The record is a 242-nucleotide RNA, which matches "Group II catalytic intron D1-D4-6" in Rfam.
Pairs were carried over by alignment from the consensus structure.
The sequence is in the family's curated seed alignment.
The family has 174 seed sequences and 1,617 matches in Rfam 15.1.
Group II introns are found in rRNA, tRNA and mRNA of organelles in fungi, plants and protists, and also in mRNA in bacteria.
Gene Ontology term of the family: Group II intron splicing.
The literature on the family includes a 2001 paper in Trends Genet by Bonen and Vogel, "The ins and outs of group II introns".
RNA sequence: AAAGUCCUCACAAGAAAGCAUUAUCCGAUGCAUCUUGAAUCGAGUUUUGAGCUUAUGGAGGUGACGAAAUGAGUUAAGCGUAAACAGAGAGACAAGCAGGCCAUAGGGAAACCGAAGUGAUUGAGCCCCGUAAACCUGUUUUGGAGUGGCCGACGUGGUCGACAUAGCGGAAGGCAAUAUCAAUAAGAAUGUUUUUUUUUUUUUGGGAUAGUUCUUAUUGACACUCCUGGGGUCUGAGAGCA
Numbered sequence: 001a002a003a004g005u006c007c008u009c010a011c012a013a014g015a016a017a018g019c020a021u022u023a024u025c026c027g028a029u030g031c032a033u034c035u036u037g038a039a040u041c042g043a044g045u046u047u048u049g050a051g052c053u054u055a056u057g058g059a060g061g062u063g064a065c066g067a068a069a070u071g072a073g074u075u076a077a078g079c080g081u082a083a084a085c086a087g088a089g090a091g092a093c094a095a096g097c098a099g100g101c102c103a104u105a106g107g108g109a110a111a112c113c114g115a116a117g118u119g120a121u122u123g124a125g126c127c128c129c130g131u132a133a134a135c136c137u138g139u140u141u142u143g144g145a146g147u148g149g150c151c152g153a154c155g156u157g158g159u160c161g162a163c164a165u166a167g168c169g170g171a172a173g174g175c176a177a178u179a180u181c182a183a184u185a186a187g188a189a190u191g192u193u194u195u196u197u198u199u200u201u202u203u204u205g206g207g208a209u210a211g212u213u214c215u216u217a218u219u220g221a222c223a224c225u226c227c228u229g230g231g232g233u234c235u236g237a238g239a240g241c242a
Base pairs, nucleotide, nucleotide: 011037012036013035014034015033018031019030020029021028022210023209024208026207040088041087044085045084046083047082048080049079050075051074052073053072054071055070056069060065122236123234125233126232127231128230129229130228143227144226145225146224147223148222149175150174151173154169155168156167180221181220182219183218184217185216186215187214188213189212190211